Overview
This 76-nucleotide RNA from Notechis scutatus belongs to the Rfam family "U1A polyadenylation inhibition element (PIE)". Gene Ontology term of the family: regulation of mRNA polyadenylation. The base pairs follow the family's consensus structure, which is taken from published work.
[Rfam]
RNA sequence: GGCAAAAGCUUUGUACCCAGAGUCUGACGGCCAGACAUUGCACCUGGAGCUUUUCCUUUGGGCAAUAAACUUGGUC
Numbered sequence: 001g002g003c004a005a006a007a008g009c010u011u012u013g014u015a016c017c018c019a020g021a022g023u024c025u026g027a028c029g030g031c032c033a034g035a036c037a038u039u040g041c042a043c044c045u046g047g048a049g050c051u052u053u054u055c056c057u058u059u060g061g062g063c064a065a066u067a068a069a070c071u072u073g074g075u076c
Stems, first nucleotide, its partner, number of pairs: 005053005017047004022036005